[Rfam]
RNA sequence: UAAAUGACAACAGGGAGCUUGUGAAGCAGGCUGAGAGGAAGUAAUCGAACUUCGACCUAUCGCACCUGAUUUGGGUAAUGCCAACGUAGGGAAAUAUGAGACAUGUAUGU
Number, nucleotide and partner (000 for none) at each position: 001u000002a000003a000004a000005u000006g000007a097008c000009a095010a000011c000012a058013g057014g056015g000016a000017g031018c030019u029020u028021g027022u000023g000024a000025a000026g000027c021028a020029g019030g018031c017032u000033g000034a000035g000036a000037g000038g053039a052040a051041g050042u049043a000044a000045u000046c000047g000048a000049a042050c041051u040052u039053c038054g000055a000056c014057c013058u012059a000060u000061c000062g000063c000064a000065c090066c089067u088068g087069a000070u000071u084072u083073g082074g081075g000076u000077a000078a000079u000080g000081c074082c073083a072084a071085c000086g000087u068088a067089g066090g065091g000092a000093a000094a000095u009096a000097u007098g000099a000100g000101a000102c000103a000104u000105g000106u000107a000108u000109g000110u000
TPP riboswitch aptamer (THI element): a 110-nucleotide sequence from Enterocloster bolteae.